[Rfam]
RNA sequence: UUCAUAGAUACAACUUUAGAGUACAUUCUAAACUUGUAUCUAUGUGGCUAACUAUAGCGUUUUUUACCGACCACAUAGAGGAUAUCUAUGUGGUUUUUUGCAUUU
Numbered sequence: 001u002u003c004a005u006a007g008a009u010a011c012a013a014c015u016u017u018a019g020a021g022u023a024c025a026u027u028c029u030a031a032a033c034u035u036g037u038a039u040c041u042a043u044g045u046g047g048c049u050a051a052c053u054a055u056a057g058c059g060u061u062u063u064u065u066a067c068c069g070a071c072c073a074c075a076u077a078g079a080g081g082a083u084a085u086c087u088a089u090g091u092g093g094u095u096u097u098u099u100g101c102a103u104u105u
Base pairs, nucleotide, nucleotide: 001046003044004043005042006041007040008039009038010037011036015032016031017030018029019028070094071093072092073091074090075089076088077087078086079085
The record is a 105-nucleotide sequence from Vagococcus fessus, which matches "trpB ncRNA motif" in Rfam.
The family's RNA type in Rfam is cis-regulatory element.
About the family: trpB ncRNA motif was reported as a strong cis regulatory motif candidate, with potential to be a cis regulatory riboswitch type, it have been identified in Firmicutes and Fusobacteria.